[Rfam]
RNA sequence: UAUUAAAAAUUCCAUCUAUUUUUACUAUUAAAAACUGGAACCUGUAUGUCUAGUUAUUUGGUCAUCUGCGCCAGUUUUUAACAGUAAAAAUGGAUGAAAUUUUUAAUA
Numbered sequence: 001u002a003u004u005a006a007a008a009a010u011u012c013c014a015u016c017u018a019u020u021u022u023u024a025c026u027a028u029u030a031a032a033a034a035c036u037g038g039a040a041c042c043u044g045u046a047u048g049u050c051u052a053g054u055u056a057u058u059u060g061g062u063c064a065u066c067u068g069c070g071c072c073a074g075u076u077u078u079u080a081a082c083a084g085u086a087a088a089a090a091u092g093g094a095u096g097a098a099a100u101u102u103u104u105a106a107u108a
Base pairs, nucleotide, nucleotide: 002107003106004105005104006103007102008101009100010099011098013096014095015094016093018091019090020089021088022087023086024085025084026083028081029080030079031078032077033076034075035074036073037072038071

A member of the RNA family "MIR7502 microRNA precursor family" from Gossypium schwendimanii, 108 nucleotides long. Taxonomically the source falls in Gossypium (Eukaryota, Spermatophyta, Mesangiospermae, Pentapetalae). The family has 6 seed sequences and 74,505 matches in Rfam 15.1.